[Rfam]
RNA sequence: UUUCACAUUUUGUAUGCAAUGAUAGCCCGGUUAUUAGCCUUUUAUCAUCUACAAUCUGUUACUACCCUAUUUACCGACAUUAAUUUGUCGGUUUUUUUU
Numbered sequence: 001u002u003u004c005a006c007a008u009u010u011u012g013u014a015u016g017c018a019a020u021g022a023u024a025g026c027c028c029g030g031u032u033a034u035u036a037g038c039c040u041u042u043u044a045u046c047a048u049c050u051a052c053a054a055u056c057u058g059u060u061a062c063u064a065c066c067c068u069a070u071u072u073a074c075c076g077a078c079a080u081u082a083a084u085u086u087g088u089c090g091g092u093u094u095u096u097u098u099u
Stems, first nucleotide, its partner, number of pairs: 015037001019034005073092006
RNA: rseX Hfq binding RNA